Alpha operon ribosome binding site: a 111-nucleotide RNA from Pseudoalteromonas sp. A25. The organism belongs to Pseudoalteromonas, within Bacteria. On this family, see Schlax et al., J Biol Chem 2001: "Translational repression of the Escherichia coli alpha operon mRNA: importance of an mRNA conformational switch and a ternary entrapment complex". The base pairs follow the family's consensus structure, which is taken from published work.
[Rfam]
RNA sequence: UGAUCCGAUCUUCGUUUGAGUAUCCUUGCGGGCUUUUCAAACAGAUGGGUGUCGGAUCUAAAUAUAGGAGAUGUGUUAGUGGCCCGUAUCGCUGGCAUUAACGUCCCUGAU
Dot-bracket structure: ...(((((((.((..........[[...[[[[....{{{....)).)...))))))..........................]]]].......]]............}}}.